[Rfam]
RNA: Enterovirus 5' cloverleaf cis-acting replication element
RNA sequence: UUAAAACAGCUGUGGGUUGUACCCACUCACAGGGCCCACGUGGCGCUAGCACUCUGGUUCUGCGGAACCUUUGUGCGCCUGUUUUACGC
Numbered sequence: 001u002u003a004a005a006a007c008a009g010c011u012g013u014g015g016g017u018u019g020u021a022c023c024c025a026c027u028c029a030c031a032g033g034g035c036c037c038a039c040g041u042g043g044c045g046c047u048a049g050c051a052c053u054c055u056g057g058u059u060c061u062g063c064g065g066a067a068c069c070u071u072u073g074u075g076c077g078c079c080u081g082u083u084u085u086a087c088g089c
Stems, first nucleotide, its partner, number of pairs: 002086007010033001011031007034044003045078002049076004056069004